[Rfam]
RNA: Small Cajal body-specific RNA 2
RNA sequence: CUUAGCGGGAGGGAGAGCGGCCGGGUGCGAGGCGGUGUGUGAGGUGCCGCGUGGCGCGUGAGGGCCGAGUGUGGUGUGCGCGAGUGUGAGUGCGCGCGUGGGGCGUGCGAGGUGAGUGCGUGCGUCCGCCCCGCGCCCCUCCCCCCGCCUACACCUUGAUCUUAUUUGAUCGGGUCGUGACCCCAGCCCCGCCGGGCCGACCUGGCGUGAAAAGCUGCCCUCCUGCGAAGCCCCUUCCCCGGGGCGCUGUGCAGCGAGGCCUCUCGGGCGGCGGCAUCGCCGGGGUCCCCGGGGUCCCGAGGCUGGUCCCCCGGGGCCGGCGCUCGGAAGUGAUGAGUUGAUCAGAUAGACGAGGCCGGGCUCGUCCCGGGCCGCUGAUUAUCGAGGCGAUUCUGAUCUGA
Numbered sequence: 001c002u003u004a005g006c007g008g009g010a011g012g013g014a015g016a017g018c019g020g021c022c023g024g025g026u027g028c029g030a031g032g033c034g035g036u037g038u039g040u041g042a043g044g045u046g047c048c049g050c051g052u053g054g055c056g057c058g059u060g061a062g063g064g065c066c067g068a069g070u071g072u073g074g075u076g077u078g079c080g081c082g083a084g085u086g087u088g089a090g091u092g093c094g095c096g097c098g099u100g101g102g103g104c105g106u107g108c109g110a111g112g113u114g115a116g117u118g119c120g121u122g123c124g125u126c127c128g129c130c131c132c133g134c135g136c137c138c139c140u141c142c143c144c145c146c147g148c149c150u151a152c153a154c155c156u157u158g159a160u161c162u163u164a165u166u167u168g169a170u171c172g173g174g175u176c177g178u179g180a181c182c183c184c185a186g187c188c189c190c191g192c193c194g195g196g197c198c199g200a201c202c203u204g205g206c207g208u209g210a211a212a213a214g215c216u217g218c219c220c221u222c223c224u225g226c227g228a229a230g231c232c233c234c235u236u237c238c239c240c241g242g243g244g245c246g247c248u249g250u251g252c253a254g255c256g257a258g259g260c261c262u263c264u265c266g267g268g269c270g271g272c273g274g275c276a277u278c279g280c281c282g283g284g285g286u287c288c289c290c291g292g293g294g295u296c297c298c299g300a301g302g303c304u305g306g307u308c309c310c311c312c313g314g315g316g317c318c319g320g321c322g323c324u325c326g327g328a329a330g331u332g333a334u335g336a337g338u339u340g341a342u343c344a345g346a347u348a349g350a351c352g353a354g355g356c357c358g359g360g361c362u363c364g365u366c367c368c369g370g371g372c373c374g375c376u377g378a379u380u381a382u383c384g385a386g387g388c389g390a391u392u393c394u395g396a397u398c399u400g401a
Stems, first nucleotide, its partner, number of pairs: 043137005048060005078085002090125003093120005099114002165213003170205004175200003179197001182196003186192002237294008246286003252282001254280003259275003262271002302321008325400004335393006354373004359368002